Shown here is a 161-nucleotide RNA from Gossypium mustelinum, a member of the family "U1 spliceosomal RNA". It is annotated as a spliceosomal small nuclear RNA. Lineage of the source: Eukaryota > Viridiplantae > Spermatophyta > Pentapetalae > Gossypium. The match comes from Rfam's covariance-model search (136 bits). U1 is a small nuclear RNA (snRNA) component of the spliceosome (involved in pre-mRNA splicing). Its 5' end forms complementary base pairs with the 5' splice junction, thus defining the 5' donor site of an intron.
[Rfam]
RNA sequence: AUACUUACCUGGACGGGGUCAAUGAGUGAUCAGGAAGACUCAUGGCCUAGAACAGUGACCUGCAUUGCACUUGGUAGGGGUGUUGCUUUAAGGUCUCCCCAAGAGGGAGAGCCUACGUCAUAAUUUGUGGAAGUGGGGGCUUGCGUACGCGCAGCCCCUAU
Numbered sequence: 001a002u003a004c005u006u007a008c009c010u011g012g013a014c015g016g017g018g019u020c021a022a023u024g025a026g027u028g029a030u031c032a033g034g035a036a037g038a039c040u041c042a043u044g045g046c047c048u049a050g051a052a053c054a055g056u057g058a059c060c061u062g063c064a065u066u067g068c069a070c071u072u073g074g075u076a077g078g079g080g081u082g083u084u085g086c087u088u089u090a091a092g093g094u095c096u097c098c099c100c101a102a103g104a105g106g107g108a109g110a111g112c113c114u115a116c117g118u119c120a121u122a123a124u125u126u127g128u129g130g131a132a133g134u135g136g137g138g139g140c141u142u143g144c145g146u147a148c149g150c151g152c153a154g155c156c157c158c159u160a161u
Stems, first nucleotide, its partner, number of pairs: 012119004016048006023042005049089003055083003059079003062075002091114003094110003098106002134160005142153004